[Rfam]
Nucleotides: 107
Stems, first nucleotide, its partner, number of pairs: 009102007017092005022086002024083002
Number, partner (000 for none) and nucleotide at each position: 001000u002000u003000g004000c005000a006000g007000c008000c009102g010101g011100c012099a013098g014097g015096u016000c017092u018091u019090a020089c021088a022086c023085g024083a025082c026000c027000a028000g029000c030000u031000c032000c033000u034000g035000c036000u037000a038000a039000a040000u041000c042000u043000c044000c045000c046000a047000g048000g049000g050000u051000c052000g053000g054000a055000a056000g057000g058000c059000a060000g061000c062000a063000a064000g065000a066000g067000u068000a069000g070000g071000c072000g073000g074000u075000u076000g077000u078000a079000g080000c081000g082025g083024u084000g085023c086022g087000a088021u089020g090019u091018g092017a093000g094000u095000a096015g097014c098013c099012u100011g101010c102009c103000u104000u105000u106000u107000u
The record is a 107-nucleotide RNA sequence from Arachidicoccus soli, which matches "Bacteroidales small SRP" in Rfam. NCBI's taxonomy places the organism under Bacteria, Pseudomonadati, Chitinophagia, Chitinophagales, Arachidicoccus. The match comes from Rfam's covariance-model search (92 bits). Clan: SRP clan. A reference for the family is Ryan et al. (2020), "A high-resolution transcriptome map identifies small RNA regulation of metabolism in the gut microbe Bacteroides thetaiotaomicron", Nat Commun.